A member of the RNA family "Plant small nucleolar RNA U3" from Triticum aestivum, 219 nucleotides long. About the family: Small nucleolar RNAs (snoRNAs) are involved in the processing and modification of rRNA in the nucleolus. There are two main classes of snoRNAs: the box C/D class, and the box H/ACA class. U3 snoRNA is a member of the box C/D class. Indeed, the box C/D element is a subset of the six short sequence elements found in all U3 snoRNAs, namely boxes A, A', B, C, C', and D. The U3 snoRNA secondary structure is characterised by a small 5' domain (with boxes A and A'), and a larger 3' domain (with boxes B, C, C', and D), the two domains being linked by a single-stranded hinge. Boxes B and C form the B/C motif, which appears to be exclusive to U3 snoRNAs, and boxes C' and D form the C'/D motif. The latter is functionally similar to the C/D motifs found in other snoRNAs. The 5' domain and the hinge region act as a pre-rRNA-binding domain. The 3' domain has conserved protein-binding sites. Both the box B/C and box C'/D motifs are sufficient for nuclear retention of U3 snoRNA. The box C'/D motif is also necessary for nucleolar localisation, stability and hyper-methylation of U3 snoRNA. Both box B/C and C'/D motifs are involved in specific protein interactions and are necessary for the rRNA processing functions of U3 snoRNA. The family's consensus secondary structure is taken from published work. NCBI's taxonomy places the organism under Eukaryota, Magnoliopsida, commelinids, Pooideae, Triticum. The match comes from Rfam's covariance-model search (188 bits). A reference for the family is Speckmann et al. (1999), "Nuclear retention elements of U3 small nucleolar RNA", Mol Cell Biol. Rfam classes the family as a C/D-box small nucleolar RNA.
[Rfam]
RNA sequence: ACGACCUUACUUGAACAGGAUCUGUUCUAUAGGCUCGUACCGCUGCAUCCUUUACCAAUAAGGAGGCAAGCACUUCAGUCUGGUUGAUGCAUUCUGACCACUGGGCCCGAGCGUGAUUAACGGCCAGAUCCAUCUGAUGGAUGGAUCCGACGGCUGUAGAGGAUCGUUCCUGCCUGGCUUAGACCUGUGCAGGGUGGCCCGGUGGUUGUCUGACAGACA
Number, nucleotide and partner (000 for none) at each position: 001a038002c037003g035004a000005c033006c032007u031008u000009a000010c000011u000012u000013g027014a026015a025016c024017a023018g022019g000020a000021u000022c018023u017024g016025u015026u014027c013028u000029a000030u000031a007032g006033g005034c000035u003036c000037g002038u001039a000040c000041c000042g000043c000044u068045g067046c066047a000048u064049c063050c062051u061052u060053u000054a000055c000056c000057a000058a000059u000060a052061a051062g050063g049064a048065g000066g046067c045068a044069a000070g000071c000072a000073c000074u000075u000076c000077a000078g218079u217080c216081u215082g214083g000084u000085u000086g000087a000088u000089g000090c000091a000092u000093u000094c000095u000096g000097a206098c205099c204100a203101c202102u201103g200104g199105g198106c197107c196108c000109g000110a168111g167112c166113g165114u000115g000116a000117u000118u000119a000120a157121c156122g155123g154124c153125c152126a000127g147128a146129u145130c144131c143132a142133u141134c140135u000136g000137a000138u000139g000140g134141a133142u132143g131144g130145a129146u128147c127148c000149g000150a000151c000152g125153g124154c123155u122156g121157u120158a000159g000160a000161g000162g000163a000164u000165c113166g112167u111168u110169c193170c192171u191172g190173c189174c187175u000176g185177g184178c000179u000180u000181a000182g000183a000184c177185c176186u000187g174188u000189g173190c172191a171192g170193g169194g000195u000196g107197g106198c105199c104200c103201g102202g101203u100204g099205g098206u097207u000208g000209u000210c000211u000212g000213a000214c082215a081216g080217a079218c078219a000